Shown here is a 56-nucleotide sequence, a member of the family "Glutamine riboswitch aptamer (glnA leader)".
RNA sequence: AUCGUUCAAUCCUUGUUUAAGAGGAUCGGAAGUAGGGCAACCCAAAGGAACGCGGA
Numbered sequence: 001a002u003c004g005u006u007c008a009a010u011c012c013u014u015g016u017u018u019a020a021g022a023g024g025a026u027c028g029g030a031a032g033u034a035g036g037g038c039a040a041c042c043c044a045a046a047g048g049a050a051c052g053c054g055g056a
Base pairs, nucleotide, nucleotide: 003052004051005050006049007048009026010025011024012023013022029053035043036042037041
Background: Its family is annotated with glutamine binding in the Gene Ontology. A reference for the family is Ames and Breaker (2011), "Bacterial aptamers that selectively bind glutamine", RNA Biol.